[Rfam]
The record is a 115-nucleotide RNA from Trichobilharzia regenti, which matches "U5 spliceosomal RNA" in Rfam. A search with the family's covariance model found it, with a score of 71 bits. The base pairs follow the family's consensus structure, which is taken from published work.

RNA sequence: UAACUCUGGCGUCUUCUCAUUUGCGGAUAAAUCUUUUGCCUUUUACUAAAGAUUUCCGUGGGGAGAAACAAUACAGUUAGUCUUGCCUCAUUUUUUCAGCUGUCUCCGGACGGAG
Number, nucleotide and partner (000 for none) at each position: 001u000002a000003a081004c080005u079006c000007u000008g000009g069010c000011g000012u066013c065014u064015u063016c062017u061018c060019a059020u000021u000022u000023g000024c000025g000026g000027a000028u000029a055030a054031a053032u052033c051034u050035u049036u048037u000038g000039c000040c000041u000042u000043u000044u000045a000046c000047u000048a036049a035050a034051g033052a032053u031054u030055u029056c000057c000058g000059u019060g018061g017062g016063g015064a014065g013066a012067a000068a000069c009070a000071a000072u000073a000074c000075a000076g000077u000078u000079a005080g004081u003082c000083u000084u000085g000086c000087c000088u000089c000090a000091u000092u000093u000094u000095u000096u000097c000098a000099g000100c000101u000102g000103u000104c115105u114106c113107c000108g000109g000110a000111c000112g000113g106114a105115g104